Shown here is a 75-nucleotide RNA sequence from Pipistrellus kuhlii, a member of the family "mir-9223 microRNA precursor family". Rfam 15.1 lists 14,641 matches to the family in 28 species. Its family is annotated with miRNA-mediated post-transcriptional gene silencing and RISC complex in the Gene Ontology. It scores 55 bits against the family's covariance model. Lineage of the source: Eukaryota > Mammalia > Boreoeutheria > Vespertilionidae > Pipistrellus.
RNA sequence: AGUGGUUCUGGGGUAAUGUACUUUAGAAUCCGGCUCCGUGCUCUCUGGUUCCAGUUGCAUUACCCGAGAACCACA
Numbered sequence: 001a002g003u004g005g006u007u008c009u010g011g012g013g014u015a016a017u018g019u020a021c022u023u024u025a026g027a028a029u030c031c032g033g034c035u036c037c038g039u040g041c042u043c044u045c046u047g048g049u050u051c052c053a054g055u056u057g058c059a060u061u062a063c064c065c066g067a068g069a070a071c072c073a074c075a
Stems, first nucleotide, its partner, number of pairs: 002074002005071005011065007019057002022054002026051005032045002